[Rfam]
RNA sequence: GUUGAUGGGAAUGUUGUUUGGCUCGAGGUAAUAACUAACUCAAUUUCUUUGUCUUUGAAAGCUUUUCUUUGUUUCACUCUUUUUGAUUCUUAGAAAGUUGAAACUAAGUGAGCUUUAAAGGUUUGAUUUUGAUGUGUGAUUAUCUCGGACCAGGCUUCAUUCCUACCAAC
Numbered sequence: 001g002u003u004g005a006u007g008g009g010a011a012u013g014u015u016g017u018u019u020g021g022c023u024c025g026a027g028g029u030a031a032u033a034a035c036u037a038a039c040u041c042a043a044u045u046u047c048u049u050u051g052u053c054u055u056u057g058a059a060a061g062c063u064u065u066u067c068u069u070u071g072u073u074u075c076a077c078u079c080u081u082u083u084u085g086a087u088u089c090u091u092a093g094a095a096a097g098u099u100g101a102a103a104c105u106a107a108g109u110g111a112g113c114u115u116u117a118a119a120g121g122u123u124u125g126a127u128u129u130u131g132a133u134g135u136g137u138g139a140u141u142a143u144c145u146c147g148g149a150c151c152a153g154g155c156u157u158c159a160u161u162c163c164u165a166c167c168a169a170c
Stems, first nucleotide, its partner, number of pairs: 001170004006165008016155006024147009

Shown here is a 170-nucleotide sequence, a member of the family "mir-166 microRNA precursor family". A reference for the family is Ambros (2001), "microRNAs: tiny regulators with great potential", Cell. Its family is annotated with miRNA-mediated post-transcriptional gene silencing and RISC complex in the Gene Ontology. Rfam describes the family as follows. This family represents the plant microRNA (miRNA) precursor mir-166.